[Rfam]
RNA sequence: CUUCACCGACCCCAACCACAACGGCGUUUCCCGGUCCUGGCCGUAGGUGGCCAGCAACGCCUGAGCCUC
Numbered sequence: 001c002u003u004c005a006c007c008g009a010c011c012c013c014a015a016c017c018a019c020a021a022c023g024g025c026g027u028u029u030c031c032c033g034g035u036c037c038u039g040g041c042c043g044u045a046g047g048u049g050g051c052c053a054g055c056a057a058c059g060c061c062u063g064a065g066c067c068u069c
Stems, first nucleotide, its partner, number of pairs: 016024002030065001032059002037054003041050003

Background:
The family of this 69-nucleotide RNA sequence from Streptosporangium subroseum is "ASpks TB sRNA". By type it is an antisense RNA. Taxonomically the source falls in Streptosporangium (Bacteria, Bacillati, Streptosporangiales, Streptosporangiaceae).